[Rfam]
Nucleotides: 354
Stems, first nucleotide, its partner, number of pairs: 001317003009314001011198004016192001018191003022085004027080002030078002032074009046062006089185003092181004100174007107151001111147008122133003159166002203244006212238002217233004255313006263291012295302002319346003328339004
Number, partner (000 for none) and nucleotide at each position: 001317g002316g003315c004000g005000u006000a007000a008000a009314g010000c011198g012197c013196g014195c015000g016192u017000a018191g019190g020189c021000g022085g023084u024083c025082c026000a027080u028079u029000a030078a031077g032074u033073c034072a035071g036070g037069g038068g039067u040066g041000a042000a043000a044000u045000c046062c047061c048060g049059g050058a051057g052000c053000u054000c055000a056000a057051c058050u059049c060048c061047g062046g063000a064000a065000c066040u067039g068038c069037c070036c071035u072034u073033g074032a075000a076000a077031c078030u079028g080027g081000c082025g083024g084023a085022c086000u087000a088000g089185a090184a091183u092181c093180c094179u095178g096000g097000a098000g099000a100174g101173g102172c103171g104170a105169g106168u107151g108000g109000a110000a111147u112146u113145c114144c115143g116142a117141g118140u119000g120000u121000a122133g123132a124131g125000g126000u127000g128000a129000a130000a131124u132123u133122c134000g135000u136000a137000g138000a139000u140118a141117u142116u143115c144114g145113g146112a147111a148000g149000a150000a151107c152000a153000c154000c155000a156000g157000u158000g159166g160165c161000g162000a163000a164000g165160g166159c167000g168106a169105c170104u171103c172102g173101c174100u175000g176000g177000a178095c179094a180093g181092g182000u183091a184090u185089u186000g187000a188000c189020g190019c191018u192016g193000a194000g195014g196013u197012g198011c199000g200000a201000a202000a203244g204243c205242g206241u207240g208239g209000g210000g211000a212238g213237c214000a215000a216000a217233c218232a219231g220230g221000a222000u223000u224000a225000g226000a227000u228000a229000c230220c231219c232218u233217g234000g235000u236000a237213g238212u239208c240207c241206a242205c243204g244203c245000c246000g247000u248000a249000a250000a251000c252000g253000a254000u255313g256312a257311u258310a259309a260308c261000u262000a263291g264290c265289u266288g267287u268286u269285c270284g271283g272282g273281c274280u275000c276000u277000u278000a279000g280274a281273g282272c283271u284270u285269g286268a287267g288266u289265g290264g291263c292000g293000c294000a295302g296301c297000u298000a299000a300000c301296g302295c303000a304000u305000u306000a307000a308260g309259u310258u311257a312256u313255c314009c315003g316002c317001c318000u319346g320345g321344g322000g323000a324000g325000u326000a327000c328339g329338g330337u331336c332000g333000c334000a335000a336331g337330a338329u339328u340000a341000a342000a343000a344321c345320u346319c347000a348000a349000a350000g351000g352000a353000a354000u